[Rfam]
RNA: Rhodo-rpoB RNA
Organism: Jannaschia pohangensis
RNA sequence: AGGACGGCGGCGCACCUGUGGGAGGGUAUGCCAGAUGGUCCUUUCCCGAAGACCCAUUCGCAGGCUGUGGUCCCCGGUGCCCGACGGGGACGCG
Numbered sequence: 001a002g003g004a005c006g007g008c009g010g011c012g013c014a015c016c017u018g019u020g021g022g023a024g025g026g027u028a029u030g031c032c033a034g035a036u037g038g039u040c041c042u043u044u045c046c047c048g049a050a051g052a053c054c055c056a057u058u059c060g061c062a063g064g065c066u067g068u069g070g071u072c073c074c075c076g077g078u079g080c081c082c083g084a085c086g087g088g089g090a091c092g093c094g
Stems, first nucleotide, its partner, number of pairs: 001042005010031003014027004068094002072089005